[Rfam]
RNA: terC RNA
RNA sequence: GGGCGGGACCGGGCCCCUCUGGCGAUCGAGCGAUCGUGAUGUCGGACCGCAUCG
Number, nucleotide and partner (000 for none) at each position: 001g000002g000003g000004c000005g000006g048007g047008a000009c045010c044011g043012g042013g000014c000015c000016c000017c000018u000019c000020u000021g000022g037023c036024g035025a034026u033027c032028g000029a000030g000031c000032g027033a026034u025035c024036g023037u022038g000039a000040u000041g000042u012043c011044g010045g009046a000047c007048c006049g000050c000051a000052u000053c000054g000